[Rfam]
RNA sequence: UAUAUUCUUCAGGGCAGGGUGUAAGUCCCUACCGGUGGUAUAGCCCACGAGCCGCAAGGCAUGACUCGGUUGAAUUCCGAGGCCGACAGUAUAGUCUGGAUGAAAGAAGAUGCAA
Numbered sequence: 001u002a003u004a005u006u007c008u009u010c011a012g013g014g015c016a017g018g019g020u021g022u023a024a025g026u027c028c029c030u031a032c033c034g035g036u037g038g039u040a041u042a043g044c045c046c047a048c049g050a051g052c053c054g055c056a057a058g059g060c061a062u063g064a065c066u067c068g069g070u071u072g073a074a075u076u077c078c079g080a081g082g083c084c085g086a087c088a089g090u091a092u093a094g095u096c097u098g099g100a101u102g103a104a105a106g107a108a109g110a111u112g113c114a115a
Stems, first nucleotide, its partner, number of pairs: 006110005017029003031095002033085002035048004043083002053059001065081005087098003
FMN riboswitch aptamer (RFN element): a 115-nucleotide RNA from Peptostreptococcaceae bacterium oral taxon 113. Lineage of the source: Bacteria > Bacillota > Clostridia > Peptostreptococcaceae > Peptostreptococcaceae bacterium oral taxon 113. The family's consensus secondary structure is taken from published work.